[Rfam]
RNA sequence: CCGCUGGUCCGGGCCCCUCUGGUAAGAGCCGCCCGGCGCUCUUGCGAUGUCGGACCGUUUUU
Number, nucleotide and partner (000 for none) at each position: 001c000002c000003g000004c000005u000006g056007g055008u054009c053010c052011g051012g050013g000014c000015c000016c000017c000018u000019c000020u000021g000022g045023u044024a043025a042026g041027a040028g039029c038030c000031g000032c000033c000034c000035g000036g000037c000038g029039c028040u027041c026042u025043u024044g023045c022046g000047a000048u000049g000050u012051c011052g010053g009054a008055c007056c006057g000058u000059u000060u000061u000062u000

terC RNA: a 62-nucleotide sequence from Rhizobium sp. PDO1-076. By type it is a cis-regulatory element. The base pairs follow the family's consensus structure, which is taken from published work. The source organism's lineage runs through Bacteria, Pseudomonadati, Alphaproteobacteria, Hyphomicrobiales and Rhizobium.